RNA: mir-290 microRNA precursor family
Organism: Equus caballus
RNA sequence: GCGGGACUCAAAUGUGGAAGCACUCUUCGAACAUCGGGAUGGAAAGUGCUGCGACAUUUGAGUGUCGCC
Numbered sequence: 001g002c003g004g005g006a007c008u009c010a011a012a013u014g015u016g017g018a019a020g021c022a023c024u025c026u027u028c029g030a031a032c033a034u035c036g037g038g039a040u041g042g043a044a045a046g047u048g049c050u051g052c053g054a055c056a057u058u059u060g061a062g063u064g065u066c067g068c069c
Stems, first nucleotide, its partner, number of pairs: 004066002007062006014055002017052001019050006026044003